[Rfam]
RNA sequence: UGCUUGCGUUAAGGAUUGAAAUGGCAUCCUUUUUACUUUUUUGUAAAAAGAUAUAAUGGAAAGCCUGUUAAAAC
Numbered sequence: 001u002g003c004u005u006g007c008g009u010u011a012a013g014g015a016u017u018g019a020a021a022u023g024g025c026a027u028c029c030u031u032u033u034u035a036c037u038u039u040u041u042u043g044u045a046a047a048a049a050g051a052u053a054u055a056a057u058g059g060a061a062a063g064c065c066u067g068u069u070a071a072a073a074c
Stems, first nucleotide, its partner, number of pairs: 012066003016062002021057002026052003032047005
A member of the RNA family "Flavo-1 RNA" from Polaribacter atrinae, 74 nucleotides long. The source organism's lineage runs through Bacteria, Bacteroidota, Flavobacteriia, Flavobacteriaceae and Polaribacter. It scores 54 bits against the family's covariance model.